[Rfam]
RNA: mir-239 microRNA precursor family
Organism: Caenorhabditis brenneri
RNA sequence: UUUGUACUAAACAUAGGUACUGAAAUAAAAUAUUUUAUUUACUCAGUUCCUAGUCUAGUGCAAGGG
Numbered sequence: 001u002u003u004g005u006a007c008u009a010a011a012c013a014u015a016g017g018u019a020c021u022g023a024a025a026u027a028a029a030a031u032a033u034u035u036u037a038u039u040u041a042c043u044c045a046g047u048u049c050c051u052a053g054u055c056u057a058g059u060g061c062a063a064g065g066g
Stems, first nucleotide, its partner, number of pairs: 001064007011054002014052004020046003023040003